A member of the RNA family "tRNA" from Parasphaerochaeta coccoides, 73 nucleotides long.

RNA sequence: CGGGGCGUUGCCUAGCGGCCAUGGCACCUGCUUUGGGAGCAGGAUAUCGGAGGUUCGAGUCCUCUCGCCCCGA
Numbered sequence: 001c002g003g004g005g006c007g008u009u010g011c012c013u014a015g016c017g018g019c020c021a022u023g024g025c026a027c028c029u030g031c032u033u034u035g036g037g038a039g040c041a042g043g044a045u046a047u048c049g050g051a052g053g054u055u056c057g058a059g060u061c062c063u064c065u066c067g068c069c070c071c072g073a
Stems, first nucleotide, its partner, number of pairs: 001072007010025003027043005049065005
The family's consensus secondary structure is taken from published work. On this family, see Hou, Trends Biochem Sci 1993: "The tertiary structure of tRNA and the development of the genetic code".